[Rfam]
RNA sequence: GGUAUUGUUUACCACCAUGAUAAGCCCCGGAACUUAUCUUGAGAAAACAAUAA
Numbered sequence: 001g002g003u004a005u006u007g008u009u010u011a012c013c014a015c016c017a018u019g020a021u022a023a024g025c026c027c028c029g030g031a032a033c034u035u036a037u038c039u040u041g042a043g044a045a046a047a048c049a050a051u052a053a
Stems, first nucleotide, its partner, number of pairs: 006049005012043001016041002019038006